Background
Rfam assigns this 84-nucleotide RNA sequence from Lentivirus humimdef1 to the family "HIV gag stem loop 3 (GSL3)". The sequence is in the family's curated seed alignment. Its family is annotated with viral RNA genome packaging in the Gene Ontology. The literature on the family includes a 2003 paper in Virology by Rong et al., "Deletion of stem-loop 3 is compensated by second-site mutations within the Gag protein of human immunodeficiency virus type 1". The organism belongs to Lentivirus humimdef1, within Viruses. About the family: This family consists of several HIV gag stem loop 3 (GSL3) sequences.

RNA sequence: GGCCGGGGGGAAAGAAAAAAUAUAGAAUGAAACAUCUCAUGUGGGCAAGCAGGGAACUAGAGCGAUUUGCACUUGAUCCUGGCC
Number, nucleotide and partner (000 for none) at each position: 001g084002g083003c082004c081005g080006g079007g078008g077009g000010g000011a000012a000013a000014g000015a000016a000017a000018a000019a000020a000021u000022a000023u000024a000025g000026a000027a000028u000029g000030a000031a000032a000033c000034a000035u000036c000037u000038c000039a000040u000041g000042u000043g000044g000045g000046c000047a000048a000049g000050c000051a000052g000053g000054g000055a000056a000057c000058u000059a000060g000061a000062g000063c000064g000065a000066u000067u000068u000069g000070c000071a000072c000073u000074u000075g000076a000077u008078c007079c006080u005081g004082g003083c002084c001